Source information:
This 114-nucleotide RNA from Streptococcus urinalis belongs to the Rfam family "PreQ1-II (pre queuosine) riboswitch aptamer". The family's consensus secondary structure is taken from published work. Rfam's curators write: preQ1-II riboswitch was first reported for Weinberg et al. 2007 it was recognised in Streptococcaceae and Lactococcus families in 5' untranslated regions of genes of a membrane protein classified as COG4708 or DUF988. Meyers et al. 2008 confirm that preQ1-II recognise the queuosine (Q) precursor pre-queuosine 1 (preQ1). Q is a hyper modified nucleoside present in some anticodons in tRNAs (Try, Asn, Asp and His).

[Rfam]
RNA sequence: UGUGGUAUAAUGUAAACUGUCGUAAAACGACCCUUGGUGCUUAGUUCCCUUUCACCAAGCAUAUUAGAAACGUAAAUGAUCCUUAGAUUAUUUGGCGUUAAAGGAGAAAAAAUG
Numbered sequence: 001u002g003u004g005g006u007a008u009a010a011u012g013u014a015a016a017c018u019g020u021c022g023u024a025a026a027a028c029g030a031c032c033c034u035u036g037g038u039g040c041u042u043a044g045u046u047c048c049c050u051u052u053c054a055c056c057a058a059g060c061a062u063a064u065u066a067g068a069a070a071c072g073u074a075a076a077u078g079a080u081c082c083u084u085a086g087a088u089u090a091u092u093u094g095g096c097g098u099u100a101a102a103g104g105a106g107a108a109a110a111a112a113u114g
Stems, first nucleotide, its partner, number of pairs: 019031005033059007046106001048104004069099005